[Rfam]
RNA: mir-34 microRNA precursor family
RNA sequence: GUUUUGAUGGCAGUGAAGUUAGUGAUUGUGAAGCAGUGGACACAAUCAGCUAACUACACUGCCUACAAACC
Numbered sequence: 001g002u003u004u005u006g007a008u009g010g011c012a013g014u015g016a017a018g019u020u021a022g023u024g025a026u027u028g029u030g031a032a033g034c035a036g037u038g039g040a041c042a043c044a045a046u047c048a049g050c051u052a053a054c055u056a057c058a059c060u061g062c063c064u065a066c067a068a069a070c071c
Base pairs, nucleotide, nucleotide: 003069004068005067006066009063010062012060013059014058015057017055018054019053020052021051022050023048024047025046026045027044028043029042030041